[Rfam]
chrB-a RNA: a 75-nucleotide RNA from Bradyrhizobium diazoefficiens.
Rfam 15.1 lists 347 matches to the family in 339 species.
The base pairs follow the family's consensus structure, which is taken from published work.
The sequence is in the family's curated seed alignment.
The organism belongs to Bradyrhizobium diazoefficiens, within Bacteria.

RNA sequence: GGCACGGGGAUCUGCGAUCUCCCCGCGAGGCGACAUGCCCAAGUAUCGCGUCCUGGUCACCAAGGACGCUGCAUG
Numbered sequence: 001g002g003c004a005c006g007g008g009g010a011u012c013u014g015c016g017a018u019c020u021c022c023c024c025g026c027g028a029g030g031c032g033a034c035a036u037g038c039c040c041a042a043g044u045a046u047c048g049c050g051u052c053c054u055g056g057u058c059a060c061c062a063a064g065g066a067c068g069c070u071g072c073a074u075g
Stems, first nucleotide, its partner, number of pairs: 005025006048069006